The record is a 78-nucleotide RNA from Hermetia illucens, which matches "drz-agam-1 ribozyme" in Rfam. The base pairs follow the family's consensus structure, which is taken from published work. Its family is annotated with catalytic activity in the Gene Ontology. For this family Rfam cites "Widespread occurrence of self-cleaving ribozymes" (Webb et al., Science, 2009).
RNA sequence: UACUUCAAAUCCUAUCUCGACCUCCACGUGGUGACCGCUGGGAGCUCUUUCUUAAUGAAAAACUGAAGACGGAGAAGG
Numbered sequence: 001u002a003c004u005u006c007a008a009a010u011c012c013u014a015u016c017u018c019g020a021c022c023u024c025c026a027c028g029u030g031g032u033g034a035c036c037g038c039u040g041g042g043a044g045c046u047c048u049u050u051c052u053u054a055a056u057g058a059a060a061a062a063c064u065g066a067a068g069a070c071g072g073a074g075a076a077g078g
Stems, first nucleotide, its partner, number of pairs: 011078003015074001017072003020032003044064001046062001048060003052057001